The family of this 118-nucleotide RNA sequence from Longibaculum muris is "azaaromatic riboswitch aptamer (yjdF RNA)". Taxonomically the source falls in Longibaculum (Bacteria, Bacillati, Bacillota, Erysipelotrichia).
RNA sequence: UGGGGCAAAGAUAAAAACACAAUGUAUAAUUUUAUACAGAUACGGUUGGUAGUCCGUACGUGAGUCUGACUCAUAAGUAACCUUCCUCCUUAGGUCGUCCAUUCUUUGUUUAUACUUU
Numbered sequence: 001u002g003g004g005g006c007a008a009a010g011a012u013a014a015a016a017a018c019a020c021a022a023u024g025u026a027u028a029a030u031u032u033u034a035u036a037c038a039g040a041u042a043c044g045g046u047u048g049g050u051a052g053u054c055c056g057u058a059c060g061u062g063a064g065u066c067u068g069a070c071u072c073a074u075a076a077g078u079a080a081c082c083u084u085c086c087u088c089c090u091u092a093g094g095u096c097g098u099c100c101a102u103u104c105u106u107u108g109u110u111u112a113u114a115c116u117u118u
Stems, first nucleotide, its partner, number of pairs: 004110008041058005060074006085094003